The family of this 291-nucleotide sequence from Mycoplasmopsis verecunda is "Bacterial RNase P class B". A reference for the family is Brown (1999), "The Ribonuclease P Database", Nucleic Acids Res. From the family's description: Ribonuclease P (RNase P) is a ubiquitous endoribonuclease, found in archaea, bacteria and eukarya as well as chloroplasts and mitochondria. Its best characterised activity is the generation of mature 5'-ends of tRNAs by cleaving the 5'-leader elements of precursor-tRNAs. Cellular RNase Ps are ribonucleoproteins. RNA from bacterial RNase Ps retains its catalytic activity in the absence of the protein subunit, i.e. it is a ribozyme. Isolated eukaryotic and archaeal RNase P RNA has not been shown to retain its catalytic function, but is still essential for the catalytic activity of the holoenzyme. Although the archaeal and eukaryotic holoenzyme s have a much greater protein content than the bacterial ones, the RNA cores from all the three lineages are homologous -- helices corresponding to P1, P2, P3, P4, and P10/11 are common to all cellular RNase P RNAs. Yet, there is considerable sequence variation, particularly among the eukaryotic RNAs. It scores 207 bits against the family's covariance model. Its Rfam clan is "RNaseP clan". NCBI's taxonomy places the organism under Bacteria, Bacillati, Mycoplasmoidales, Metamycoplasmataceae, Mycoplasmopsis.

RNA sequence: GCAUAUAGCUGACAGCUGCUUAUAAAGUAGAGGAAAGUCCGUGCUAGCACCACCUGCAAUGGUGGUAGUGAUUGCGCUUAGCCCAAUAAGCUAUGGAUAUAAGGAAACUUAUAGACGACUAGUGCCACAGAGACGAGAGAAAUGAAACGGGUAAACUCCGCAAGCUAGAAACUCAAAUUUUGGUAGAGGAAUUCAAGCUAAGAACUCAAUGAAGCUUGGAAAUAUCUAUUUAUAGAUAUUAGAUAAAUUGUCAGCACUGUAGUAAUACAGAACAGAACACGGCUUAUGAUG
Number, nucleotide and partner (000 for none) at each position: 001g000002c000003a000004u291005a290006u289007a287008g255009c254010u253011g252012a251013c250014a249015g000016c030017u029018g028019c027020u026021u025022a000023u000024a000025a021026a020027g019028u018029a017030g016031a000032g000033g000034a000035a285036a284037g283038u000039c282040c281041g280042u279043g278044c168045u167046a166047g165048c164049a066050c065051c064052a063053c062054c061055u000056g000057c000058a000059a000060u000061g054062g053063u052064g051065g050066u049067a000068g000069u000070g000071a000072u163073u162074g161075c160076g159077c095078u000079u093080a092081g091082c090083c000084c000085a000086a000087u000088a000089a000090g082091c081092u080093a079094u000095g077096g116097a000098u113099a112100u111101a110102a109103g000104g000105a000106a000107a000108c000109u102110u101111a100112u099113a098114g000115a000116c096117g158118a157119c000120u000121a000122g156123u155124g152125c151126c150127a000128c000129a000130g000131a000132g000133a000134c000135g000136a000137g000138a000139g000140a000141a000142a000143u000144g000145a000146a000147a000148c000149g000150g126151g125152u124153a000154a000155a123156c122157u118158c117159c076160g075161c074162a073163a072164g048165c047166u046167a045168g044169a000170a000171a000172c188173u187174c186175a000176a000177a000178u000179u000180u000181u000182g000183g000184u000185a000186g174187a173188g172189g000190a000191a000192u220193u219194c218195a217196a216197g215198c214199u000200a000201a000202g000203a000204a000205c000206u000207c000208a000209a000210u000211g000212a000213a000214g198215c197216u196217u195218g194219g193220a192221a240222a239223u238224a237225u236226c235227u234228a233229u000230u000231u000232a000233u228234a227235g226236a225237u224238a223239u222240u221241a000242g000243a000244u000245a000246a000247a000248u000249u014250g013251u012252c011253a010254g009255c008256a000257c270258u269259g268260u267261a266262g000263u000264a000265a000266u261267a260268c259269a258270g257271a000272a000273c000274a000275g000276a000277a000278c043279a042280c041281g040282g039283c037284u036285u035286a000287u007288g000289a006290u005291g004